[Rfam]
RNA sequence: CAAGAGGCGGUCACUGUCAUGAUGAAUUAUUUCAGAGUGGGAAUAUCGCUGUUGA
Numbered sequence: 001c002a003a004g005a006g007g008c009g010g011u012c013a014c015u016g017u018c019a020u021g022a023u024g025a026a027u028u029a030u031u032u033c034a035g036a037g038u039g040g041g042a043a044u045a046u047c048g049c050u051g052u053u054g055a
Stems, first nucleotide, its partner, number of pairs: 006050006017040004023034003

Rfam assigns this 55-nucleotide sequence from Lacticaseibacillus rhamnosus to the family "Transposase-1 RNA".